[Rfam]
A member of the RNA family "Bacterial RNase P class A" from Candidatus Thiomargarita nelsonii, 358 nucleotides long. Ribonuclease P (RNase P) is a ubiquitous endoribonuclease, found in archaea, bacteria and eukarya as well as chloroplasts and mitochondria. The base pairs follow the family's consensus structure, which is taken from published work. A search with the family's covariance model found it, with a score of 318 bits.

RNA sequence: GGAGUUGGUUGGGCAGUCGCUAUAGAGUUUUUAUAGAGGAAAGUCCGGGCUUCAUAGGACAAGGUGCCAGGUAACGCCUGGGGGGCGUGAGCCUACGGAAAGUGCCACAGAAAAUAUACCGCCUUUAAUUAAGGUAAGGGUGAAAAGGUGUCGUUAAGAGCGCACCGCACUACUGGCAACAGUAGUGGCAGGGUAAACCCCACCUGAAGCAAGACCAAAUAGUGGAACGCGAUGUGGUCCGCAUCAUUCCCGGGUAGGUCGCUAGAGGUGCUUGGUGACAAGCAUCCCAGAUGAAUGGCUUUGCCUCAUUGGCUAUAUAAUCAGUGAACAGAACCCGGCUUAUAGACCAACUCCUUUC
Number, nucleotide and partner (000 for none) at each position: 001g354002g353003a352004g351005u350006u349007g348008g347009u346010u345011g343012g305013g304014c303015a302016g299017u298018c297019g000020c036021u035022a034023u033024a032025g031026a030027g000028u000029u000030u026031u025032u024033a023034u022035a021036g020037a000038g000039g000040a000041a341042a340043g339044u000045c338046c337047g336048g335049g334050c209051u208052u207053c206054a000055u000056a000057g240058g239059a238060c237061a000062a205063g204064g203065u202066g201067c081068c080069a079070g078071g077072u000073a000074a000075c000076g000077c071078c070079u069080g068081g067082g096083g094084g093085g092086c091087g000088u000089g000090a000091g086092c085093c084094u083095a000096c082097g200098g199099a000100a000101a000102g198103u197104g194105c193106c192107a000108c000109a000110g000111a000112a000113a000114a000115u000116a000117u000118a000119c139120c138121g135122c134123c133124u132125u131126u000127a000128a000129u000130u000131a125132a124133g123134g122135u121136a000137a000138g120139g119140g000141u000142g000143a000144a000145a000146a000147g166148g165149u164150g163151u000152c162153g161154u000155u000156a000157a000158g000159a000160g000161c153162g152163c150164a149165c148166c147167g189168c187169a186170c185171u184172a183173c182174u181175g180176g000177c000178a000179a000180c175181a174182g173183u172184a171185g170186u169187g168188g000189c167190a000191g000192g106193g105194u104195a000196a000197a103198c102199c098200c097201c066202a065203c064204c063205u062206g053207a052208a051209g050210c000211a000212a000213g260214a259215c258216c257217a000218a000219a000220u000221a000222g000223u000224g250225g249226a248227a247228c000229g000230c000231g245232a244233u243234g242235u241236g000237g060238u059239c058240c057241g235242c234243a233244u232245c231246a000247u227248u226249c225250c224251c000252g000253g000254g000255u000256a000257g216258g215259u214260c213261g000262c000263u000264a000265g000266a000267g286268g285269u284270g283271c282272u281273u280274g279275g000276u000277g000278a000279c274280a273281a272282g271283c270284a269285u268286c267287c000288c000289a000290g000291a000292u000293g000294a000295a000296u000297g018298g017299c016300u000301u000302u015303g014304c013305c012306u000307c000308a000309u000310u000311g000312g000313c000314u000315a000316u000317a000318u000319a000320a000321u000322c000323a000324g000325u000326g000327a000328a000329c000330a000331g000332a000333a000334c049335c048336c047337g046338g045339c043340u042341u041342a000343u011344a000345g010346a009347c008348c007349a006350a005351c004352u003353c002354c001355u000356u000357u000358c000
Background
It is annotated as a ribozyme.